The family of this 189-nucleotide RNA sequence from Lacrimispora saccharolytica is "glmS glucosamine-6-phosphate activated ribozyme aptamer". This entry contains a glucosamine-6-phosphate activated ribozyme that is found in the mRNA for GlmS. GlmS is an enzyme that uses fructose-6-phosphate and glutamine to generate glucosamine-6-phosphate. The family's RNA type in Rfam is riboswitch.
RNA sequence: UAGCAAAGCUAAGCGCCAUGCACCUGAUGAUACGAUCGUGAACAUUUUUCCAGUGAAAAAUGGUAUCAAAGGUUAACGAGGUGAAGGGUUAUCGAAGAUUCGGCGGAUGCCCUUCCAUGCCCCUCCGGGCGUGUAUCCUACGUGAAAUAUGCGGGUAACUGCAAAACAAACGCGUUGGAACCGGAGACA
Numbered sequence: 001u002a003g004c005a006a007a008g009c010u011a012a013g014c015g016c017c018a019u020g021c022a023c024c025u026g027a028u029g030a031u032a033c034g035a036u037c038g039u040g041a042a043c044a045u046u047u048u049u050c051c052a053g054u055g056a057a058a059a060a061u062g063g064u065a066u067c068a069a070a071g072g073u074u075a076a077c078g079a080g081g082u083g084a085a086g087g088g089u090u091a092u093c094g095a096a097g098a099u100u101c102g103g104c105g106g107a108u109g110c111c112c113u114u115c116c117a118u119g120c121c122c123c124u125c126c127g128g129g130c131g132u133g134u135a136u137c138c139u140a141c142g143u144g145a146a147a148u149a150u151g152c153g154g155g156u157a158a159c160u161g162c163a164a165a166a167c168a169a170a171c172g173c174g175u176u177g178g179a180a181c182c183g184g185a186g187a188c189a
Base pairs, nucleotide, nucleotide: 022073023072024071025070030066031065032064033063083115084114085113086112087111092103093102094101095100116133117132118131119130120129121128136179137178138177140175141174142173150163151162152161153160154159